[Rfam]
RNA: A. fumigatus sRNA Afu_309
Organism: Ramularia collo-cygni
RNA sequence: CCUUCUUCGCAAAACAAUGACCUGUGUCCAGCGGUCCUUGCGCGCUUCCGGGCGCUGCAGGUUGACUGCUGCGACAUUUCGACGAUCAUGGGACCUUCACUACUAUGGAGCACGCUCGGUCGACAGGUCUUAGAGAGAAUGCGGCUCACAUCUUGAGCUCUACGUGAGCUCGGUGUGCAGUCCGGGCGCUAUAUUCCACUUUGUCCCAGAGCCCGUCGGGCCUUGAUUGGGGGAACAAACCAUAGCUUGCCUACAUCA
Numbered sequence: 001c002c003u004u005c006u007u008c009g010c011a012a013a014a015c016a017a018u019g020a021c022c023u024g025u026g027u028c029c030a031g032c033g034g035u036c037c038u039u040g041c042g043c044g045c046u047u048c049c050g051g052g053c054g055c056u057g058c059a060g061g062u063u064g065a066c067u068g069c070u071g072c073g074a075c076a077u078u079u080c081g082a083c084g085a086u087c088a089u090g091g092g093a094c095c096u097u098c099a100c101u102a103c104u105a106u107g108g109a110g111c112a113c114g115c116u117c118g119g120u121c122g123a124c125a126g127g128u129c130u131u132a133g134a135g136a137g138a139a140u141g142c143g144g145c146u147c148a149c150a151u152c153u154u155g156a157g158c159u160c161u162a163c164g165u166g167a168g169c170u171c172g173g174u175g176u177g178c179a180g181u182c183c184g185g186g187c188g189c190u191a192u193a194u195u196c197c198a199c200u201u202u203g204u205c206c207c208a209g210a211g212c213c214c215g216u217c218g219g220g221c222c223u224u225g226a227u228u229g230g231g232g233g234a235a236c237a238a239a240c241c242a243u244a245g246c247u248u249g250c251c252u253a254c255a256u257c258a
Stems, first nucleotide, its partner, number of pairs: 019129007026075003029071003033067004037061005042055005083122005092111001094108002149175004155171006185251003188246005200235003204231001207229003211221004